[Rfam]
RNA sequence: AUAAAGGAGCAAUAACCACUUUCUUGUUCUAGUAAGAGUGUUGGUAUCGCUCCUUUAUUUCA
Numbered sequence: 001a002u003a004a005a006g007g008a009g010c011a012a013u014a015a016c017c018a019c020u021u022u023c024u025u026g027u028u029c030u031a032g033u034a035a036g037a038g039u040g041u042u043g044g045u046a047u048c049g050c051u052c053c054u055u056u057a058u059u060u061c062a
Stems, first nucleotide, its partner, number of pairs: 001058010012047003016043001017040003022037005
The family of this 62-nucleotide RNA from Gossypium harknessii is "Plastid-psbA-2 3UTR RNA". On this family, see Richter et al., Plant Commun 2023: "Retrograde signaling in plants: A critical review focusing on the GUN pathway and beyond". Pairs were carried over by alignment from the consensus structure, which was predicted with LocARNA. The match comes from Rfam's covariance-model search (59 bits). The organism belongs to Gossypium, within Eukaryota. Clan: Plastid-psbA 3UTR RNA clan. Plastid psbA-2 is a non-coding RNA (ncRNA) present in plastids.